RNA: glmS glucosamine-6-phosphate activated ribozyme aptamer
Organism: Planococcus halotolerans
RNA sequence: AAACUAGUUGAAGCGCCUGUACUGGAGAAAUCGGACGGACAAGUCAUUUUCCAGUAGACGAGGAGGAGGAGUAUCGAGAUUUCGGCGGAUACCUCCCGGCCGUGAAGCCCGGUCGUUAUGUUCAUCUUCAAAGCAGCUGAGUGAUCAGCUGUACAACAGGAUGAAUGGGCUCAAGA
Numbered sequence: 001a002a003a004c005u006a007g008u009u010g011a012a013g014c015g016c017c018u019g020u021a022c023u024g025g026a027g028a029a030a031u032c033g034g035a036c037g038g039a040c041a042a043g044u045c046a047u048u049u050u051c052c053a054g055u056a057g058a059c060g061a062g063g064a065g066g067a068g069g070a071g072u073a074u075c076g077a078g079a080u081u082u083c084g085g086c087g088g089a090u091a092c093c094u095c096c097c098g099g100c101c102g103u104g105a106a107g108c109c110c111g112g113u114c115g116u117u118a119u120g121u122u123c124a125u126c127u128u129c130a131a132a133g134c135a136g137c138u139g140a141g142u143g144a145u146c147a148g149c150u151g152u153a154c155a156a157c158a159g160g161a162u163g164a165a166u167g168g169g170c171u172c173a174a175g176a
Stems, first nucleotide, its partner, number of pairs: 020056008029047001065096005074085004097115006120166007134151007
Dot-bracket structure: ...................((((((((.(.................).))))))))........(((((....((((....))))......)))))((((((.......))))))....(((((((.......(((((((....)))))))........)))))))..........